[Rfam]
Notes:
The record is a 370-nucleotide RNA sequence from Glutamicibacter creatinolyticus, which matches "transfer-messenger RNA" in Rfam. It scores 150 bits against the family's covariance model. Pairs were carried over by alignment from the consensus structure, which is taken from published work. Rfam classes the family as a non-coding RNA gene. Rfam describes the family as follows. Bacterial tmRNA, also known as 10Sa RNA or SsrA, is named for its dual tRNA and mRNA-like properties. Its role is to liberate the mRNA from a stalled ribosome. To accomplish this part of the tmRNA is used as a reading frame that ends in a translation stop signal.
RNA sequence: GGGGAUGAUCGGUUUCGACGGUGUGAGUCGCGACAGAUGAAGCGGGCCGAGGACGCAAAGUUAUCUCGUUAACGCUCUUUGCAACCAAAUAAGUGCCGAAUCUAAGCGCACUGACUUCGCUCUCGCUGCCUAAGCAGCCAGACAGUCCGUUAGCCAGGGGAUGCUAUCGCCCCUGUUACUAACGUCAUUUAGAUAGCCACUGCGAUCAAUGAACGUUGCCGGCGUUGAUCGCAUAAUUUAGGCAACUGUGCCCGGACCAGCCACUUGUUUGCGUGAUGGCUGGGGCAGAGAAAAUCCACAGCAAACUGCGCCCGGAGAAGACCUGGCAACACCACAGCGGACGGGAGUUCAAUUCUCCCCAUCUCCACAU
Numbered sequence: 001g002g003g004g005a006u007g008a009u010c011g012g013u014u015u016c017g018a019c020g021g022u023g024u025g026a027g028u029c030g031c032g033a034c035a036g037a038u039g040a041a042g043c044g045g046g047c048c049g050a051g052g053a054c055g056c057a058a059a060g061u062u063a064u065c066u067c068g069u070u071a072a073c074g075c076u077c078u079u080u081g082c083a084a085c086c087a088a089a090u091a092a093g094u095g096c097c098g099a100a101u102c103u104a105a106g107c108g109c110a111c112u113g114a115c116u117u118c119g120c121u122c123u124c125g126c127u128g129c130c131u132a133a134g135c136a137g138c139c140a141g142a143c144a145g146u147c148c149g150u151u152a153g154c155c156a157g158g159g160g161a162u163g164c165u166a167u168c169g170c171c172c173c174u175g176u177u178a179c180u181a182a183c184g185u186c187a188u189u190u191a192g193a194u195a196g197c198c199a200c201u202g203c204g205a206u207c208a209a210u211g212a213a214c215g216u217u218g219c220c221g222g223c224g225u226u227g228a229u230c231g232c233a234u235a236a237u238u239u240a241g242g243c244a245a246c247u248g249u250g251c252c253c254g255g256a257c258c259a260g261c262c263a264c265u266u267g268u269u270u271g272c273g274u275g276a277u278g279g280c281u282g283g284g285g286c287a288g289a290g291a292a293a294a295u296c297c298a299c300a301g302c303a304a305a306c307u308g309c310g311c312c313c314g315g316a317g318a319a320g321a322c323c324u325g326g327c328a329a330c331a332c333c334a335c336a337g338c339g340g341a342c343g344g345g346a347g348u349u350c351a352a353u354u355c356u357c358c359c360c361a362u363c364u365c366c367a368c369a370u
Base pairs, nucleotide, nucleotide: 001366002365003364004363005362006361007360019339020338022336023335024334025333032327034325035324036323038321043314044313045312046311047310048068049067050066051065052064055082056081057080058079059078060077121142122141123140125138126137127136128135129134148184149183150182151181152180153179155175156174157173158172159171160170163197164196165195166194167193168192201233202232203231204230205229206228207227208226209225218246221243249287250286251285252284253283255281257279258278262275263274264273267306268305269304270303343359344358345357346356347355